[Rfam]
RNA sequence: ACGAGUGCUCUGGGGUCGGUGAAAUCCCGAACCGGCGGUUAAAGCCCGCGACCCGCGCAUCCGCGCGGUUGACUCGGUGGAAAUCCGAGGCCGACGGUUAAAGUCCGGAUGGAAAGAGUACGCCG
Numbered sequence: 001a002c003g004a005g006u007g008c009u010c011u012g013g014g015g016u017c018g019g020u021g022a023a024a025u026c027c028c029g030a031a032c033c034g035g036c037g038g039u040u041a042a043a044g045c046c047c048g049c050g051a052c053c054c055g056c057g058c059a060u061c062c063g064c065g066c067g068g069u070u071g072a073c074u075c076g077g078u079g080g081a082a083a084u085c086c087g088a089g090g091c092c093g094a095c096g097g098u099u100a101a102a103g104u105c106c107g108g109a110u111g112g113a114a115a116g117a118g119u120a121c122g123c124c125g
Base pairs, nucleotide, nucleotide: 003123005121006120007119008118009117010116017029018028019027031104032103033093034092035049036048037047038046044091045090053068054067073089074088075087076086077085095107096106097105
Source information:
FMN riboswitch aptamer (RFN element): a 125-nucleotide RNA from Rarobacter faecitabidus. The family's consensus secondary structure is taken from published work. NCBI's taxonomy places the organism under Bacteria, Bacillati, Actinomycetota, Micrococcales, Rarobacter. Rfam links the family to the GO term FMN binding.